[Rfam]
RNA: Guanidine-II riboswitch aptamer (mini-ykkC)
Organism: Pseudoalteromonas piratica
RNA sequence: AAGUAAGGACGACCUUACCGCUCCAUUUUCAUCGGGGACGGCCCC
Numbered sequence: 001a002a003g004u005a006a007g008g009a010c011g012a013c014c015u016u017a018c019c020g021c022u023c024c025a026u027u028u029u030c031a032u033c034g035g036g037g038a039c040g041g042c043c044c045c
Stems, first nucleotide, its partner, number of pairs: 003018006034045004